[Rfam]
RNA sequence: GAUUGAUCGAAUACCAUGUGUUCCUGUUGGCGUCACUUUACUUGAGUCUGAAAUGGGUAGAGUUUCGAUGCCGGAUGGGGUCAAUCGUUCUUAUUAAUGCAUGGUAGAUUGAAAUUUAUUUGGAAAGAUGUAUCUCCAGCUGUUGAUAAGAGGAAAAAGCUUUUUUCUUUUACCUCGCCAUCAAAAUCUGAUACAGUUGGUCAUUAUUCUUACCACAGUG
Number, nucleotide and partner (000 for none) at each position: 001g000002a000003u000004u000005g000006a000007u000008c000009g000010a000011a000012u000013a000014c104015c103016a102017u101018g100019u099020g098021u097022u000023c079024c078025u077026g076027u075028u074029g000030g072031c070032g069033u068034c067035a063036c062037u061038u060039u000040a000041c000042u000043u000044g000045a054046g000047u000048c000049u000050g000051a000052a000053a000054u045055g000056g000057g000058u000059a000060g038061a037062g036063u035064u000065u000066c000067g034068a033069u032070g031071c000072c030073g000074g028075a027076u026077g025078g024079g023080g095081u000082c000083a092084a091085u000086c000087g000088u000089u000090c000091u084092u083093a000094u000095u080096a000097a021098u020099g019100c018101a017102u016103g015104g014105u000106a000107g000108a000109u000110u000111g000112a000113a000114a000115u000116u000117u000118a000119u000120u000121u000122g214123g213124a000125a211126a000127g209128a208129u000130g000131u000132a000133u000134c000135u000136c200137c199138a198139g197140c196141u195142g194143u193144u000145g000146a000147u000148a000149a000150g176151a175152g174153g173154a000155a171156a170157a169158a168159g167160c000161u000162u000163u000164u000165u000166u000167c159168u158169u157170u156171u155172a000173c153174c152175u151176c150177g000178c000179c000180a000181u000182c000183a000184a000185a000186a000187u000188c000189u000190g000191a000192u000193a143194c142195a141196g140197u139198u138199g137200g136201u000202c000203a000204u000205u000206a000207u000208u128209c127210u000211u125212a000213c123214c122215a000216c000217a000218g000219u000220g000
Shown here is a 220-nucleotide RNA sequence from Zygotorulaspora mrakii, a member of the family "Small nucleolar RNA snR31". The family's RNA type in Rfam is H/ACA-box small nucleolar RNA. Lineage of the source: Eukaryota > Fungi > Saccharomycetales > Saccharomycetaceae > Zygotorulaspora.